[Rfam]
RNA sequence: AAAAAAAGGACAAAAACCCUCGUAUAAUUGCACGAUACAAGGGCUUUUGUCCGGGGAUCUCUUGCGAGAUCCCCAUCAUGGGAGAGGAGAAACCGGACGAAGAGCUUAUGGGGAAACGUAAGUCUUCUCCGCGG
Numbered sequence: 001a002a003a004a005a006a007a008g009g010a011c012a013a014a015a016a017c018c019c020u021c022g023u024a025u026a027a028u029u030g031c032a033c034g035a036u037a038c039a040a041g042g043g044c045u046u047u048u049g050u051c052c053g054g055g056g057a058u059c060u061c062u063u064g065c066g067a068g069a070u071c072c073c074c075a076u077c078a079u080g081g082g083a084g085a086g087g088a089g090a091a092a093c094c095g096g097a098c099g100a101a102g103a104g105c106u107u108a109u110g111g112g113g114a115a116a117c118g119u120a121a122g123u124c125u126u127c128u129c130c131g132c133g134g
Stems, first nucleotide, its partner, number of pairs: 011049005017043003050082004055072006094131004099127004104123005